[Rfam]
RNA: MIR6152 microRNA precursor family
RNA sequence: UGGACAGAUUAUUGUAUUCGAAUGUAUUCACAGCAUGAAACAGGGAAUUACACUAUUUUUAAGCGGAAAGUGAAUCAAUUAACAUAAUAAACUCCU
Numbered sequence: 001u002g003g004a005c006a007g008a009u010u011a012u013u014g015u016a017u018u019c020g021a022a023u024g025u026a027u028u029c030a031c032a033g034c035a036u037g038a039a040a041c042a043g044g045g046a047a048u049u050a051c052a053c054u055a056u057u058u059u060u061a062a063g064c065g066g067a068a069a070g071u072g073a074a075u076c077a078a079u080u081a082a083c084a085u086a087a088u089a090a091a092c093u094c095c096u
Stems, first nucleotide, its partner, number of pairs: 002095003009090007017082002020080002023077002026075006034065001036063001037059004042054002